[Rfam]
RNA sequence: AUCAGGUCCGUCCGCCACGCGGGCGUGGCCAGGCCGGCGCCUUUCGCGAAUCCGGUCCGACGCCCGUCGAUAACCUGGCGUCAUG
Numbered sequence: 001a002u003c004a005g006g007u008c009c010g011u012c013c014g015c016c017a018c019g020c021g022g023g024c025g026u027g028g029c030c031a032g033g034c035c036g037g038c039g040c041c042u043u044u045c046g047c048g049a050a051u052c053c054g055g056u057c058c059g060a061c062g063c064c065c066g067u068c069g070a071u072a073a074c075c076u077g078g079c080g081u082c083a084u085g
Stems, first nucleotide, its partner, number of pairs: 005030004009025006032057006038048003059082006
A member of the RNA family "nhaA-II RNA", 85 nucleotides long. Rfam's curators put it in the seed alignment.